[Rfam]
RNA sequence: CUUGGUGUUCCGCCACCAAUAGCCUACCGAUCCAUGCAUUGCUGGUAACGGCGGUGUGUGAAGCGAUCGGGACAAUGUAACCCGCCGAAAAGCGGCAUCAGUUCCGUGAGGAGCAGGUGCUAUCUGCGAGCAUCAACGCGGAUGGGGGC
Numbered sequence: 001c002u003u004g005g006u007g008u009u010c011c012g013c014c015a016c017c018a019a020u021a022g023c024c025u026a027c028c029g030a031u032c033c034a035u036g037c038a039u040u041g042c043u044g045g046u047a048a049c050g051g052c053g054g055u056g057u058g059u060g061a062a063g064c065g066a067u068c069g070g071g072a073c074a075a076u077g078u079a080a081c082c083c084g085c086c087g088a089a090a091a092g093c094g095g096c097a098u099c100a101g102u103u104c105c106g107u108g109a110g111g112a113g114c115a116g117g118u119g120c121u122a123u124c125u126g127c128g129a130g131c132a133u134c135a136a137c138g139c140g141g142a143u144g145g146g147g148g149c
Stems, first nucleotide, its partner, number of pairs: 002019006028069005033060012083094003097118002104111002123142006

Rfam assigns this 149-nucleotide RNA from gamma proteobacterium HdN1 to the family "Group II catalytic intron D1-D4-7". Rfam's curators write: Group II introns are found in rRNA, tRNA and mRNA of organelles in fungi, plants and protists, and also in mRNA in bacteria. Rfam links the family to the GO term Group II intron splicing. Lineage of the source: Bacteria > Pseudomonadati > Pseudomonadota > Gammaproteobacteria.